[Rfam]
RNA: tRNA
Organism: Ilumatobacter fluminis
RNA sequence: GCCCCCAUCGUCUAGUGGCCUAGGACACCACCCUUUCAAGGUGGCGGCACGGGUUCGAAUCCCGUUGGGGGUG
Numbered sequence: 001g002c003c004c005c006c007a008u009c010g011u012c013u014a015g016u017g018g019c020c021u022a023g024g025a026c027a028c029c030a031c032c033c034u035u036u037c038a039a040g041g042u043g044g045c046g047g048c049a050c051g052g053g054u055u056c057g058a059a060u061c062c063c064g065u066u067g068g069g070g071g072u073g
Stems, first nucleotide, its partner, number of pairs: 001072007010026004028044005049065005